Rfam assigns this 69-nucleotide RNA sequence from Eumeta japonica to the family "mir-1000 microRNA precursor family".

[Rfam]
Nucleotides: 069
Stems, first nucleotide, its partner, number of pairs: 003067004012058007022048008
Number, partner (000 for none) and nucleotide at each position: 001000c002000g003067c004066c005065g006064c007000c008000a009000u010000a011000u012058u013057g014056u015055c016054c017053u018052g019000u020000c021000a022048c023047a024046g025045c026044a027043g028042u029041a030000c031000g032000u033000g034000g035000c036000c037000c038000g039000u040000c041029u042028a043027c044026u045025g046024c047023u048022g049000c050000g051000c052018c053017g054016g055015g056014a057013c058012a059000a060000g061000c062000c063000g064006g065005c066004g067003g068000c069000g